[Rfam]
RNA: Small nucleolar RNA SNORD67
Organism: Salarias fasciatus
RNA sequence: AGUGAGAGUGAUGAGUUGCACGAUUAAAAGUUGGAGUGUUUGUUGCAGUGGCAACAUCUCGCCAAUCCGAGUCGACCUGAGGACACACUGUGUGCACAGGGGCCAUCUGACUCUCU
Numbered sequence: 001a002g003u004g005a006g007a008g009u010g011a012u013g014a015g016u017u018g019c020a021c022g023a024u025u026a027a028a029a030g031u032u033g034g035a036g037u038g039u040u041u042g043u044u045g046c047a048g049u050g051g052c053a054a055c056a057u058c059u060c061g062c063c064a065a066u067c068c069g070a071g072u073c074g075a076c077c078u079g080a081g082g083a084c085a086c087a088c089u090g091u092g093u094g095c096a097c098a099g100g101g102g103c104c105a106u107c108u109g110a111c112u113c114u115c116u
Base pairs, nucleotide, nucleotide: 004115006113007112008111030067031065032064033063034062036060038058042055043054044053045052046051